[Rfam]
RNA sequence: UACAGAGAUAGAGGUUGCGUGUUUUAUGAGUAGUUUUUUGGAUGUGGCAGGCACAGGAGAAGAGAAACGAAAGGAAAAAACGCCGAAAGAAUAGGUAUCCUGCGGACAUAUUCUUGGGCAUACAGUGAAGAAUUGUAUGACUGUCAUCAGCAAUGAUGGGGCGCUAUCCGAUGA
Numbered sequence: 001u002a003c004a005g006a007g008a009u010a011g012a013g014g015u016u017g018c019g020u021g022u023u024u025u026a027u028g029a030g031u032a033g034u035u036u037u038u039u040g041g042a043u044g045u046g047g048c049a050g051g052c053a054c055a056g057g058a059g060a061a062g063a064g065a066a067a068c069g070a071a072a073g074g075a076a077a078a079a080a081c082g083c084c085g086a087a088a089g090a091a092u093a094g095g096u097a098u099c100c101u102g103c104g105g106a107c108a109u110a111u112u113c114u115u116g117g118g119c120a121u122a123c124a125g126u127g128a129a130g131a132a133u134u135g136u137a138u139g140a141c142u143g144u145c146a147u148c149a150g151c152a153a154u155g156a157u158g159g160g161g162c163g164c165u166a167u168c169c170g171a172u173g174a
Stems, first nucleotide, its partner, number of pairs: 007168005017083004022078004033068007087115007095107002098104001116142002119139008144159006